The family of this 75-nucleotide sequence from Streptomyces oceani is "ASpks TB sRNA".
It scores 80 bits against the family's covariance model.
Taxonomically the source falls in Streptomyces (Bacteria, Actinomycetota, Actinomycetes, Streptomycetaceae).
It is annotated as an antisense RNA.

[Rfam]
Nucleotides: 075
Stems, first nucleotide, its partner, number of pairs: 014026004031071001033069001038065001043060003047056003
Number, partner (000 for none) and nucleotide at each position: 001000c002000u003000u004000c005000g006000c007000c008000g009000a010000g011000c012000c013000c014026a015025g016024c017023c018000a019000c020000a021000a022000g023017g024016g025015c026014u027000g028000g029000u030000c031071c032000u033069c034000c035000g036000c037000c038065c039000u040000g041000c042000c043060c044059u045058g046000c047056c048055c049054g050000u051000a052000g053000g054049u055048g056047g057000c058045c059044a060043g061000c062000a063000g064000c065038g066000c067000c068000u069033g070000c071031g072000c073000c074000u075000c